[Rfam]
RNA sequence: AGCAAAGGGUUGUGCCCAGGCUUUCGGUACAUUGAACGAAUUCGCAGUGUCAGACCGGCUCAAGGGAGUGGGGAACCGUUACGGGCAGAGCACGGGUAAAUGUGAUGCCCACAAUGGCACCCC
Numbered sequence: 001a002g003c004a005a006a007g008g009g010u011u012g013u014g015c016c017c018a019g020g021c022u023u024u025c026g027g028u029a030c031a032u033u034g035a036a037c038g039a040a041u042u043c044g045c046a047g048u049g050u051c052a053g054a055c056c057g058g059c060u061c062a063a064g065g066g067a068g069u070g071g072g073g074a075a076c077c078g079u080u081a082c083g084g085g086c087a088g089a090g091c092a093c094g095g096g097u098a099a100a101u102g103u104g105a106u107g108c109c110c111a112c113a114a115u116g117g118c119a120c121c122c123c
Base pairs, nucleotide, nucleotide: 007123008122009121012120013119014118015117016116025078026077027076028075029050030049031048032047033046034045055072056071058069059068060067061066083110084109085108091104092103093102
This 123-nucleotide RNA belongs to the Rfam family "DUF3268 RNA". It is annotated as a small RNA. Rfam's curators put it in the seed alignment.